[Rfam]
RNA sequence: GUGGGCUAUGGCGACAUGUGCCCCACCACCCCCGGGGGGAAGAUCGUGGGUACUCUCUGUGCCAUUGCGGGGGUUCUCACCAUCGCCCUCCCGGUGCCCGUCAUCGUCUCCAAC
Dot-bracket structure: ((.((..((((.(((..((((...............((((........(((.........)))..........))))................))))..))).))))..)).))

A member of the RNA family "Potassium channel RNA editing signal" from Galemys pyrenaicus, 114 nucleotides long. For this family Rfam cites "Control of human potassium channel inactivation by editing of a small mRNA hairpin" (Bhalla et al., Nat Struct Mol Biol, 2004). Pairs were carried over by alignment from the consensus structure, which is taken from published work. By type it is a cis-regulatory element.